A member of the RNA family "c-di-AMP riboswitch aptamer (ydaO/yuaA leader)" from Williamsia sp. Leaf354, 200 nucleotides long. A search with the family's covariance model found it, with a score of 72 bits. The organism belongs to Williamsia, within Bacteria.

[Rfam]
RNA sequence: GCGAGGUCACCGCUCAAUCGCCCUCUGGGGCGAAUCGGGGAACCAUCACUUCGGACGCAGUCCGAUCGGGGUGAAUCCUCCGUGUGUUCGAGUGGCCGGUCGGGAUCAGAUCUCGCACGUCCGCGCGUCGUCACGGGGGUAGGGCCAGUCUUCCGGCCCGAAUCCGACAGCUAACCCGGUAGGCGGUCGAGGAAGAUAUG
Numbered sequence: 001g002c003g004a005g006g007u008c009a010c011c012g013c014u015c016a017a018u019c020g021c022c023c024u025c026u027g028g029g030g031c032g033a034a035u036c037g038g039g040g041a042a043c044c045a046u047c048a049c050u051u052c053g054g055a056c057g058c059a060g061u062c063c064g065a066u067c068g069g070g071g072u073g074a075a076u077c078c079u080c081c082g083u084g085u086g087u088u089c090g091a092g093u094g095g096c097c098g099g100u101c102g103g104g105a106u107c108a109g110a111u112c113u114c115g116c117a118c119g120u121c122c123g124c125g126c127g128u129c130g131u132c133a134c135g136g137g138g139g140u141a142g143g144g145c146c147a148g149u150c151u152u153c154c155g156g157c158c159c160g161a162a163u164c165c166g167a168c169a170g171c172u173a174a175c176c177c178g179g180u181a182g183g184c185g186g187u188c189g190a191g192g193a194a195g196a197u198a199u200g
Base pairs, nucleotide, nucleotide: 011185012184013183014182018033019032020031021030022029034180035179036178037177038176039175044068069165070164071163077139078138079137080136081135082134083133084132142159143158144157145156